The family of this 120-nucleotide sequence from Arthrobacter sp. PAMC 25486 is "SAM (S-adenosyl methionine) riboswitch aptamer". Lineage of the source: Bacteria > Bacillati > Actinomycetes > Micrococcales > Arthrobacter. A search with the family's covariance model found it, with a score of 85 bits. The family's consensus secondary structure is taken from published work.

RNA sequence: AGUAAUGAGUGCCAGCGCCAAGCCCUGACUUGCUGGCCGGCAACCCUCUUUCCGGCGGGGUGCCUCAGGUGAAUACUUGGCAAACCCAGCUACCACGGCUGACGUUUGCAAGCGUGAACC
Numbered sequence: 001a002g003u004a005a006u007g008a009g010u011g012c013c014a015g016c017g018c019c020a021a022g023c024c025c026u027g028a029c030u031u032g033c034u035g036g037c038c039g040g041c042a043a044c045c046c047u048c049u050u051u052c053c054g055g056c057g058g059g060g061u062g063c064c065u066c067a068g069g070u071g072a073a074u075a076c077u078u079g080g081c082a083a084a085c086c087c088a089g090c091u092a093c094c095a096c097g098g099c100u101g102a103c104g105u106u107u108g109c110a111a112g113c114g115u116g117a118a119c120c
Stems, first nucleotide, its partner, number of pairs: 001077004009038001011037006021030002039064003044060003048055002080109006